Shown here is a 118-nucleotide RNA from Brassica napus, a member of the family "MIR398 microRNA precursor family". The literature on the family includes a 2010 paper in Nucleic Acids Res by Zeng et al., "Conservation and divergence of microRNAs and their functions in Euphorbiaceous plants". A search with the family's covariance model found it, with a score of 69 bits.

RNA sequence: UGGACCUCGACAGGGUCGACAUGAGAACACAUGGUAAUCAAAGGCUGUAAUGACGCCACGUCAUUGUAACAUACAUCUCUCUUUUCAUGUGUUCUCAGGUCACCCCUGCUGAGCUCUU
Numbered sequence: 001u002g003g004a005c006c007u008c009g010a011c012a013g014g015g016u017c018g019a020c021a022u023g024a025g026a027a028c029a030c031a032u033g034g035u036a037a038u039c040a041a042a043g044g045c046u047g048u049a050a051u052g053a054c055g056c057c058a059c060g061u062c063a064u065u066g067u068a069a070c071a072u073a074c075a076u077c078u079c080u081c082u083u084u085u086c087a088u089g090u091g092u093u094c095u096c097a098g099g100u101c102a103c104c105c106c107u108g109c110u111g112a113g114c115u116c117u118u
Stems, first nucleotide, its partner, number of pairs: 007112002011108004018101002023096012